[Rfam]
RNA sequence: AAAAGUACUUACUAGGGUUCCGUGAUAUGAGCAAUAUCAGUCUGGUCCGAGAGUAAGUCCAUGGGGUAAACCUAUGUACACGGAAGGAUAAAAGCCUGGGAGAA
Numbered sequence: 001a002a003a004a005g006u007a008c009u010u011a012c013u014a015g016g017g018u019u020c021c022g023u024g025a026u027a028u029g030a031g032c033a034a035u036a037u038c039a040g041u042c043u044g045g046u047c048c049g050a051g052a053g054u055a056a057g058u059c060c061a062u063g064g065g066g067u068a069a070a071c072c073u074a075u076g077u078a079c080a081c082g083g084a085a086g087g088a089u090a091a092a093a094g095c096c097u098g099g100g101a102g103a104a
Stems, first nucleotide, its partner, number of pairs: 007058006015048002020045002022042001023039006060076006079099001081102001085097003
This 104-nucleotide sequence from Vagococcus carniphilus belongs to the Rfam family "Guanidine-I riboswitch aptamer". The pairing is the family consensus, mapped onto this sequence. This family represents a conserved RNA structure found upstream of the ykkC and yxkD genes in Bacillus subtilis and related genes in other bacteria. The function of this family is unclear although it has been suggested that it may function to switch on efflux pumps and detoxification systems in response to harmful environmental molecules. Its family is annotated with regulation of gene expression in the Gene Ontology.